[Rfam]
narK RNA: a 66-nucleotide RNA from Halopseudomonas salegens.
Taxonomically the source falls in Halopseudomonas (Bacteria, Pseudomonadati, Gammaproteobacteria, Pseudomonadaceae).
The family's RNA type in Rfam is cis-regulatory element.

RNA sequence: GGCAUGCUUCCUGCUUUACUUAUGUCAGGCAGCCAACGGCGGUUGCUGACCAGACAACGACGUCAC
Numbered sequence: 001g002g003c004a005u006g007c008u009u010c011c012u013g014c015u016u017u018a019c020u021u022a023u024g025u026c027a028g029g030c031a032g033c034c035a036a037c038g039g040c041g042g043u044u045g046c047u048g049a050c051c052a053g054a055c056a057a058c059g060a061c062g063u064c065a066c
Stems, first nucleotide, its partner, number of pairs: 028047007